[Rfam]
RNA sequence: AAACACUCCCAUGAGGGGGGUGGUUCCCCAGCCGGGGGCUACCUUACCAUAUUCCGAGUUC
Numbered sequence: 001a002a003a004c005a006c007u008c009c010c011a012u013g014a015g016g017g018g019g020g021u022g023g024u025u026c027c028c029c030a031g032c033c034g035g036g037g038g039c040u041a042c043c044u045u046a047c048c049a050u051a052u053u054c055c056g057a058g059u060u061c
Stems, first nucleotide, its partner, number of pairs: 017045011
Rfam assigns this 61-nucleotide sequence from Roseofilum reptotaenium to the family "Plastid-psbN 5UTR RNA". Rfam 15.1 lists 2,345 matches to the family in 397 species. The family's consensus secondary structure was predicted with LocARNA. The match comes from Rfam's covariance-model search (61 bits). Lineage of the source: Bacteria > Bacillati > Cyanophyceae > Roseofilum > Roseofilum reptotaenium. By type it is a cis-regulatory element. Plastid psbN is a non-coding RNA (ncRNA) recognised in plastids. It was reported as a conserved 11 stem-loop in the prime untranslated region (5UTR) of psbN genes. It has been reported that the motif is retained in a subset of mature transcripts in barley, which can suggests a possible role in transcript alternative 5 prime processing. For this family Rfam cites "The primary transcriptome of barley chloroplasts: numerous noncoding RNAs and the dominating role of the plastid-encoded RNA polymerase" (Zhelyazkova et al., Plant Cell, 2012).